[Rfam]
RNA: Bacterial RNase P class A
RNA sequence: UCAGAGGGUCGGGCGGCCGCGUCGUGGAAACGUCGAGGAAAGUCCGGGCUCCGCGGAACAACGGUGGCGGGUAACGCCCGCCGGGGGCGACCCCAGGGAAAGUGCCACAGAGAGCAGACGGCCGCGCUUCGGCGCGGUCACGGUGAAAGGGUGCGGCAAGAGCGCACCGCGCGCCUGGUAACAGGGGCGGCACGGCAAACCCCACCGGGAGCAAGAUCGAAUAGGGGCGGCGCGGUACGUUCGCGUGCCAGGGUGUGUUCCCACCCGCUGCCCGGGUUGAUUGCUGGAGCCCGCGUGCGAGCGCGGGCCGAGAGGAAUGGUCGCCUAUCCUUGCCCGCGAGGGUGGGGUGGACAGAACCCGGCUUACAGACCCUCUGACAUC
Numbered sequence: 001u002c003a004g005a006g007g008g009u010c011g012g013g014c015g016g017c018c019g020c021g022u023c024g025u026g027g028a029a030a031c032g033u034c035g036a037g038g039a040a041a042g043u044c045c046g047g048g049c050u051c052c053g054c055g056g057a058a059c060a061a062c063g064g065u066g067g068c069g070g071g072u073a074a075c076g077c078c079c080g081c082c083g084g085g086g087g088c089g090a091c092c093c094c095a096g097g098g099a100a101a102g103u104g105c106c107a108c109a110g111a112g113a114g115c116a117g118a119c120g121g122c123c124g125c126g127c128u129u130c131g132g133c134g135c136g137g138u139c140a141c142g143g144u145g146a147a148a149g150g151g152u153g154c155g156g157c158a159a160g161a162g163c164g165c166a167c168c169g170c171g172c173g174c175c176u177g178g179u180a181a182c183a184g185g186g187g188c189g190g191c192a193c194g195g196c197a198a199a200c201c202c203c204a205c206c207g208g209g210a211g212c213a214a215g216a217u218c219g220a221a222u223a224g225g226g227g228c229g230g231c232g233c234g235g236u237a238c239g240u241u242c243g244c245g246u247g248c249c250a251g252g253g254u255g256u257g258u259u260c261c262c263a264c265c266c267g268c269u270g271c272c273c274g275g276g277u278u279g280a281u282u283g284c285u286g287g288a289g290c291c292c293g294c295g296u297g298c299g300a301g302c303g304c305g306g307g308c309c310g311a312g313a314g315g316a317a318u319g320g321u322c323g324c325c326u327a328u329c330c331u332u333g334c335c336c337g338c339g340a341g342g343g344u345g346g347g348g349u350g351g352a353c354a355g356a357a358c359c360c361g362g363c364u365u366a367c368a369g370a371c372c373c374u375c376u377g378a379c380a381u382c
Stems, first nucleotide, its partner, number of pairs: 001378010011367001012325007020035002023032003040365003044362005049211004058259001062207005067081005082096001083094004097202002102200002104196003119142002121138007150168006169191001170189003174185004215282004225273006251266005289308008